[Rfam]
RNA: mir-955 microRNA precursor family
RNA sequence: UAGCCAACUUCAUCGUGCAUUGGUUUGAGUGUUUGACUUUGGCAAAAUGAGCAUUCAACCGCUGAACGAUAGAGAUGGCCA
Numbered sequence: 001u002a003g004c005c006a007a008c009u010u011c012a013u014c015g016u017g018c019a020u021u022g023g024u025u026u027g028a029g030u031g032u033u034u035g036a037c038u039u040u041g042g043c044a045a046a047a048u049g050a051g052c053a054u055u056c057a058a059c060c061g062c063u064g065a066a067c068g069a070u071a072g073a074g075a076u077g078g079c080c081a
Stems, first nucleotide, its partner, number of pairs: 003079004008074003012070005018064002021061005027056006